[Rfam]
RNA: Selenocysteine transfer RNA
Organism: Polarella glacialis
RNA sequence: GUCAGGGUGAGUCGGGCUGGUGCUCGGACAAGACUUCAACUCUUGGAGCAUGGGGACAUGCAGGAGUUCGAUUUUCUCUCCUUGAA
Numbered sequence: 001g002u003c004a005g006g007g008u009g010a011g012u013c014g015g016g017c018u019g020g021u022g023c024u025c026g027g028a029c030a031a032g033a034c035u036u037c038a039a040c041u042c043u044u045g046g047a048g049c050a051u052g053g054g055g056a057c058a059u060g061c062a063g064g065a066g067u068u069c070g071a072u073u074u075u076c077u078c079u080c081c082u083u084g085a086a
Base pairs, nucleotide, nucleotide: 002085003084004083005082006081007080009078012027013026014025015024016023017022029045030044031043032042033041048061049060050059051058052057063077064076065075066074